Shown here is a 75-nucleotide sequence from Thinocorus orbignyianus, a member of the family "Small nucleolar RNA Z40".
NCBI's taxonomy places the organism under Eukaryota, Chordata, Aves, Neognathae, Thinocorus.
It is annotated as a C/D-box small nucleolar RNA.
A search with the family's covariance model found it, with a score of 70 bits.
Rfam 15.1 lists 615 matches to the family in 541 species.
Pairs were carried over by alignment from the consensus structure, which was predicted with PFOLD.

RNA sequence: GAAUGUUGUGAUGAUGGGCAAAAUGUUCAACUGCUCUGAAAAGAGUGAGUGAGAAGAGCCUUUCUGAACAAAUUA
Number, nucleotide and partner (000 for none) at each position: 001g000002a074003a073004u070005g069006u068007u000008g000009u000010g000011a000012u000013g000014a000015u000016g000017g000018g000019c000020a000021a000022a000023a000024u000025g000026u000027u000028c000029a000030a000031c000032u000033g000034c000035u000036c000037u000038g000039a000040a000041a000042a000043g000044a000045g000046u000047g000048a000049g000050u000051g000052a000053g000054a000055a000056g000057a000058g000059c000060c000061u000062u000063u000064c000065u000066g000067a000068a006069c005070a004071a000072a000073u003074u002075a000